Notes:
Selenocysteine transfer RNA: a 92-nucleotide sequence from Burkholderia sp. WAC0059. Pairs were carried over by alignment from the consensus structure, which is taken from published work. Rfam 15.1 lists 4,211 matches to the family in 3,344 species. Taxonomically the source falls in Burkholderia (Bacteria, Pseudomonadati, Burkholderiales, Burkholderiaceae).
RNA sequence: GGAAGGCAUUCGCAUCGGGUGGUGCGGCUGGGCUUCAAACCCAGUAGAUGUGGUCAGCCCACGUCUGGUCAGUUCGACUCUGGCUGCCUUCC
Numbered sequence: 001g002g003a004a005g006g007c008a009u010u011c012g013c014a015u016c017g018g019g020u021g022g023u024g025c026g027g028c029u030g031g032g033c034u035u036c037a038a039a040c041c042c043a044g045u046a047g048a049u050g051u052g053g054u055c056a057g058c059c060c061a062c063g064u065c066u067g068g069u070c071a072g073u074u075c076g077a078c079u080c081u082g083g084c085u086g087c088c089u090u091c092c
Base pairs, nucleotide, nucleotide: 001092002091003090004089005088006087007086008085011026012025013024014023015022016021027045028044029043030042031041032040047065048064049063050062051061069083070082071081072080